[Rfam]
RNA sequence: CCACAGCAGCUUGGAAGACUAGUGAUUUUGUUGUUCUGUGGUUAAACUGACAACAAGUCAUUGUCUCCCUCACUGCUUUGA
Numbered sequence: 001c002c003a004c005a006g007c008a009g010c011u012u013g014g015a016a017g018a019c020u021a022g023u024g025a026u027u028u029u030g031u032u033g034u035u036c037u038g039u040g041g042u043u044a045a046a047c048u049g050a051c052a053a054c055a056a057g058u059c060a061u062u063g064u065c066u067c068c069c070u071c072a073c074u075g076c077u078u079u080g081a
Base pairs, nucleotide, nucleotide: 001080005077007075008074009073013069014068016066017065018064019063022061023060024059025058026057027056028055030054031053032052033051034050035049
Dot-bracket structure: (...(.(((...((.((((..(((((((.((((((.............))))))))))))).)))).))...))).)..).
Shown here is an 81-nucleotide RNA sequence from Scophthalmus maximus, a member of the family "mir-7 microRNA precursor family". Rfam links the family to the GO terms miRNA-mediated post-transcriptional gene silencing and RISC complex. Taxonomically the source falls in Scophthalmus (Eukaryota, Deuterostomia, Neopterygii, Clupeocephala). From the family's description: This family represents the microRNA (miRNA) precursor mir-7. The base pairs follow the family's consensus structure, which was predicted with PFOLD. For this family Rfam cites "microRNAs: tiny regulators with great potential" (Ambros, Cell, 2001).